[Rfam]
RNA sequence: AGGUAGAUGCACCCUGAUGAUUGCCUUCACCUCAAGUGUGAGGGCUUUUUGU
Numbered sequence: 001a002g003g004u005a006g007a008u009g010c011a012c013c014c015u016g017a018u019g020a021u022u023g024c025c026u027u028c029a030c031c032u033c034a035a036g037u038g039u040g041a042g043g044g045c046u047u048u049u050u051g052u
Stems, first nucleotide, its partner, number of pairs: 002013003024044007032036001